[Rfam]
Nucleotides: 130
Stems, first nucleotide, its partner, number of pairs: 002064001005061002007058004013051002018049002023044001028043005074124007086113002089110003093105005
Number, partner (000 for none) and nucleotide at each position: 001000u002064c003000c004000u005061c006060c007058c008057c009056u010055a011000g012000a013051g014050u015000g016000c017000u018049g019048c020000a021000g022000g023044u024000g025000u026000g027000c028043g029042u030041g031040g032039c033000u034000g035000c036000u037000g038000u039032g040031u041030c042029a043028c044023a045000u046000g047000g048019g049018c050014a051013u052000c053000a054000g055010u056009a057008g058007g059000u060006g061005g062000c063000a064002g065000a066000g067000a068000g069000g070000a071000c072000a073000g074124a075123g076122g077121c078120u079119a080118u081000g082000u083000u084000u085000a086113u087112g088000c089110u090109c091108a092000a093105u094104g095103u096102u097101c098000u099000g100000u101097g102096a103095a104094u105093a106000u107000c108091u109090g110089a111000a112087u113086g114000a115000u116000u117000a118080g119079u120078a121077g122076c123075c124074u125000a126000a127000c128000a129000u130000u
A member of the RNA family "Small nucleolar RNA SNORA17" from Rattus norvegicus, 130 nucleotides long.
The family is grouped with related families in Rfam's "SNORA17 clan".
Rfam describes the family as follows. snoRNA ACA 17 belongs to the H/ACA family of snoRNAs and is predicted to guide pseudouridylation of the 28S rRNA at positions U4659 and U4598.